The record is a 168-nucleotide sequence from Clostridium sp. CT7, which matches "Group II catalytic intron D1-D4-3" in Rfam. Taxonomically the source falls in Clostridium (Bacteria, Bacillota, Clostridia, Eubacteriales). Pairs were carried over by alignment from the consensus structure. A reference for the family is Bonen and Vogel (2001), "The ins and outs of group II introns", Trends Genet. The match comes from Rfam's covariance-model search (109 bits).
[Rfam]
RNA sequence: UCUAUCGUGAGAUGGAAUCUAAAGGAAGUCAGGGGCAAAACUCUGAUUUGACGUACAGAAACUACAUAUAAGGCAUAUGCCUGUAGGAUAAGUUUGCUAAACAAAGCCAUAAACUAUCCGAAGCAGGCAGUGUAAAUGUAGAAGAUAUAUGUAGAGAAAGUAAGCACU
Dot-bracket structure: ((((((....))))))...........(......((....((.((((((............((((((.....(((..(((((((.((.(..((((...))))...)))..............))))))).)))..)))))).))))...)).)).....))......)